[Rfam]
RNA: Small nucleolar RNA SNORD11B
Organism: Kryptolebias marmoratus
RNA sequence: UGCCAGGCAAUGAUGAUGAGGACAGCAUGUCAUUUUCCUGAAUAUGACUGAUGGUUUUAAGUCACUACCUCAUCUGAGCCUUCG
Numbered sequence: 001u002g003c004c005a006g007g008c009a010a011u012g013a014u015g016a017u018g019a020g021g022a023c024a025g026c027a028u029g030u031c032a033u034u035u036u037c038c039u040g041a042a043u044a045u046g047a048c049u050g051a052u053g054g055u056u057u058u059a060a061g062u063c064a065c066u067a068c069c070u071c072a073u074c075u076g077a078g079c080c081u082u083c084g
Stems, first nucleotide, its partner, number of pairs: 002083001005081004